[Rfam]
RNA: Alphaproteobacteria transfer-messenger RNA
Organism: Enhydrobacter aerosaccus
RNA sequence: CGACUUCAAAAAGCGAUGCGGCGUGCCUAUAUUGGGUGCGUCGGGAAACCGACUAUGGCGAUAAACGCCGCGUGGCAUAAGCGUAUCGGACCCGGGGGCAGUACCCGGCGCCUCCACCAUUUUCCCUCGCUUCUCGAAGCGAGGUCGAUGGGGGCGAAACAGGAUCGACGAGCGUGGUAAAGGCGCGGUUUUUGCCCGGCAUGGUUCCGCCGUAAAGGGCCACACACAAGUGCCAACGAUAACGACGUUGCACUCGCUGCUGCCGCCUAAACAGCGGACGUAAGCGCGGUUUCGGGAGGGGCACCGGGCAACAGAAGCCCCUCCC
Numbered sequence: 001c002g003a004c005u006u007c008a009a010a011a012a013g014c015g016a017u018g019c020g021g022c023g024u025g026c027c028u029a030u031a032u033u034g035g036g037u038g039c040g041u042c043g044g045g046a047a048a049c050c051g052a053c054u055a056u057g058g059c060g061a062u063a064a065a066c067g068c069c070g071c072g073u074g075g076c077a078u079a080a081g082c083g084u085a086u087c088g089g090a091c092c093c094g095g096g097g098g099c100a101g102u103a104c105c106c107g108g109c110g111c112c113u114c115c116a117c118c119a120u121u122u123u124c125c126c127u128c129g130c131u132u133c134u135c136g137a138a139g140c141g142a143g144g145u146c147g148a149u150g151g152g153g154g155c156g157a158a159a160c161a162g163g164a165u166c167g168a169c170g171a172g173c174g175u176g177g178u179a180a181a182g183g184c185g186c187g188g189u190u191u192u193u194g195c196c197c198g199g200c201a202u203g204g205u206u207c208c209g210c211c212g213u214a215a216a217g218g219g220c221c222a223c224a225c226a227c228a229a230g231u232g233c234c235a236a237c238g239a240u241a242a243c244g245a246c247g248u249u250g251c252a253c254u255c256g257c258u259g260c261u262g263c264c265g266c267c268u269a270a271a272c273a274g275c276g277g278a279c280g281u282a283a284g285c286g287c288g289g290u291u292u293c294g295g296g297a298g299g300g301g302c303a304c305c306g307g308g309c310a311a312c313a314g315a316a317g318c319c320c321c322u323c324c325c
Stems, first nucleotide, its partner, number of pairs: 040053005057196005067189007082174003086171003092108005109156007197212004202222003206219003287306004296321001298319002